This 148-nucleotide RNA from Sinocyclocheilus grahami belongs to the Rfam family "MIR474 microRNA precursor family".
The source organism's lineage runs through Eukaryota, Chordata, Neopterygii, Cypriniformes and Sinocyclocheilus.
A reference for the family is Lu et al. (2005), "Novel and mechanical stress-responsive MicroRNAs in Populus trichocarpa that are absent from Arabidopsis", Plant Cell.
It scores 48 bits against the family's covariance model.

RNA sequence: ACAACCCAGUGCUGGGUAAAAUUGGGUUGUUUUGACCCAGCGGUUGGGUUACUACCCAGAAGGUUGGGUUAAACAUUUAACCCAACCGCUGGGUCAACACAGCCCAAUUGCUGGGUUUGACCCUAUUUUACCCAGCACUGGGUUGUAU
Dot-bracket structure: ((.((((((.((((((((((((.((((((...(((((((((((((((((((..........................))))))))))))))))))).....................)))))).)))))))))))).)))))).))..